[Rfam]
RNA sequence: AGAAGGCGAUGAUGUGAGAGGUUGUUGGCACGCCCGGCCCCUUUGCCAUGGCGAGCUGUCAAGUAAUUUUCACGGAGUAUGUCUGUAAUAAUAUGGACGA
Numbered sequence: 001a002g003a004a005g006g007c008g009a010u011g012a013u014g015u016g017a018g019a020g021g022u023u024g025u026u027g028g029c030a031c032g033c034c035c036g037g038c039c040c041c042u043u044u045g046c047c048a049u050g051g052c053g054a055g056c057u058g059u060c061a062a063g064u065a066a067u068u069u070u071c072a073c074g075g076a077g078u079a080u081g082u083c084u085g086u087a088a089u090a091a092u093a094u095g096g097a098c099g100a
Stems, first nucleotide, its partner, number of pairs: 014073003018070004025062005080099004086095002